Overview
This 52-nucleotide sequence from Delphinapterus leucas belongs to the Rfam family "mir-1302 microRNA precursor family". Gene Ontology terms of the family: miRNA-mediated post-transcriptional gene silencing and RISC complex. The match comes from Rfam's covariance-model search (62 bits). NCBI's taxonomy places the organism under Eukaryota, Teleostomi, Laurasiatheria, Odontoceti, Delphinapterus. The literature on the family includes a 2008 paper in Genome Res by Morin et al., "Application of massively parallel sequencing to microRNA profiling and discovery in human embryonic stem cells".

[Rfam]
RNA sequence: UUUUUAGUAUAAUUAUGUCCCGUGUAAGACUUGGGACUUACUUAUACUAAAA
Numbered sequence: 001u002u003u004u005u006a007g008u009a010u011a012a013u014u015a016u017g018u019c020c021c022g023u024g025u026a027a028g029a030c031u032u033g034g035g036a037c038u039u040a041c042u043u044a045u046a047c048u049a050a051a052a
Stems, first nucleotide, its partner, number of pairs: 006048007014040002018036004022031001